The family of this 214-nucleotide sequence from Endozoicomonas montiporae is "Group II catalytic intron D1-D4-6". Its family is annotated with Group II intron splicing in the Gene Ontology. From the family's description: Group II introns are found in rRNA, tRNA and mRNA of organelles in fungi, plants and protists, and also in mRNA in bacteria. A search with the family's covariance model found it, with a score of 121 bits.
RNA sequence: CGACUCCCACCCGGUAAAGACUAACCAUCAGCCGGAAGCGAGUCUUGCAUAGCCAGUGGUAACGCUGGUUGUGAAGCGUAAACAGCAGGUACUAAAGCCGCGGGAUUGAGUCUCGAAAUCAUGUGACCGUUGAGGACUUCAUUUUGUUGGUUGUGGUCAGCACUGCCAACCCGACUUGGUGAGGGUAUGGCAGCUCGGCUGGGCUCUGAGGCCG
Number, nucleotide and partner (000 for none) at each position: 001c000002g000003a000004c000005u000006c000007c000008c000009a000010c000011c035012c034013g033014g032015u000016a000017a000018a000019g029020a028021c000022u182023a000024a180025c179026c000027a000028u020029c019030a000031g000032c014033c013034g012035g011036a000037a000038g086039c085040g000041a000042g083043u082044c000045u080046u078047g077048c073049a072050u071051a070052g069053c068054c067055a066056g065057u064058g063059g000060u000061a000062a000063c058064g057065c056066u055067g054068g053069u052070u051071g050072u049073g048074a000075a000076g000077c047078g046079u000080a045081a000082a043083c042084a000085g039086c038087a000088g000089g000090u000091a000092c000093u000094a000095a000096a000097g000098c000099c000100g000101c000102g000103g000104g000105a000106u000107u208108g206109a000110g205111u000112c203113u202114c201115g200116a000117a000118a000119u000120c000121a000122u000123g000124u000125g000126a000127c000128c000129g199130u198131u197132g196133a195134g194135g158136a157137c156138u000139u000140c155141a154142u153143u000144u000145u000146g000147u000148u000149g000150g000151u000152u000153g142154u141155g140156g137157u136158c135159a000160g000161c000162a000163c193164u192165g191166c190167c189168a188169a186170c185171c184172c183173g000174a000175c000176u000177u000178g000179g025180u024181g000182a022183g172184g171185g170186u169187a000188u168189g167190g166191c165192a164193g163194c134195u133196c132197g131198g130199c129200u115201g114202g113203g112204c000205u110206c108207u000208g107209a000210g000211g000212c000213c000214g000